[Rfam]
RNA sequence: CUAGCACUUUAACAGGUCCUCCCCUAGCAGUGGCCCUAGUAUUUGGUAGCUGGUGCUGAGAGAAAACUCUGACUGCAUUCUUGCCUUGGAACUGUACCAGUGGCAGCUGUCACUCAGUGGAAGAGAA
Numbered sequence: 001c002u003a004g005c006a007c008u009u010u011a012a013c014a015g016g017u018c019c020u021c022c023c024c025u026a027g028c029a030g031u032g033g034c035c036c037u038a039g040u041a042u043u044u045g046g047u048a049g050c051u052g053g054u055g056c057u058g059a060g061a062g063a064a065a066a067c068u069c070u071g072a073c074u075g076c077a078u079u080c081u082u083g084c085c086u087u088g089g090a091a092c093u094g095u096a097c098c099a100g101u102g103g104c105a106g107c108u109g110u111c112a113c114u115c116a117g118u119g120g121a122a123g124a125g126a127a
Base pairs, nucleotide, nucleotide: 003057004056005055006054007053008052013045014044015043017041019039020038023033024032067120068119069117070116071115072114074112075111077110078109081106082105083104084103085102086100087099088098089097
This 127-nucleotide RNA from Castor canadensis belongs to the Rfam family "Small nucleolar RNA SNORA30/SNORA37 family". Gene Ontology terms of the family: RNA processing and nucleolus. Pairs were carried over by alignment from the consensus structure, which was predicted with RNAfold. On this family, see Huttenhofer et al., EMBO J 2001: "RNomics: an experimental approach that identifies 201 candidates for novel, small, non-messenger RNAs in mouse". The family has 11 seed sequences and 407 matches in Rfam 15.1. Rfam's curators write: The members of this family belong to the H/ACA class of snoRNAs that guide the sites of modification of uridines to pseudouridines. This family includes human ACA30 (SNORA30), ACA37 (SNORA37) and the mouse homolog MBI-26. Both ACA37 and ACA30 are predicted to guide the pseudouridylation of residue U4643 of 28S rRNA. The family's RNA type in Rfam is H/ACA-box small nucleolar RNA. Taxonomically the source falls in Castor (Eukaryota, Bilateria, Vertebrata, Boreoeutheria).